[Rfam]
RNA sequence: GCGUAUGCCUUAGCGCGAGACCUUGCAGGAGCGUACUGCAAGGGGACGAGGAAGAGGUUGUCGAACAUUCAGCGGAUGCCUCUCGGCUGCAUCGGUCGUAAAAAGCUGCAAAGCCCCUUGGUGACGAGGGGGACAAGGUAGUUCAUAAGAUGGG
Numbered sequence: 001g002c003g004u005a006u007g008c009c010u011u012a013g014c015g016c017g018a019g020a021c022c023u024u025g026c027a028g029g030a031g032c033g034u035a036c037u038g039c040a041a042g043g044g045g046a047c048g049a050g051g052a053a054g055a056g057g058u059u060g061u062c063g064a065a066c067a068u069u070c071a072g073c074g075g076a077u078g079c080c081u082c083u084c085g086g087c088u089g090c091a092u093c094g095g096u097c098g099u100a101a102a103a104a105g106c107u108g109c110a111a112a113g114c115c116c117c118u119u120g121g122u123g124a125c126g127a128g129g130g131g132g133a134c135a136a137g138g139u140a141g142u143u144c145a146u147a148a149g150a151u152g153g154g
Base pairs, nucleotide, nucleotide: 021043022042023041024040025039026038027037053083054082055081056080057079061072063070064069084098085097086096087095088094089093104143105142106141107140114131115130116129117128118127119126120125
This 154-nucleotide RNA sequence from Selenomonas sputigena belongs to the Rfam family "glmS glucosamine-6-phosphate activated ribozyme aptamer". Pairs were carried over by alignment from the consensus structure, which is taken from published work. The literature on the family includes a 2004 paper in Nature by Winkler et al., "Control of gene expression by a natural metabolite-responsive ribozyme". It scores 80 bits against the family's covariance model.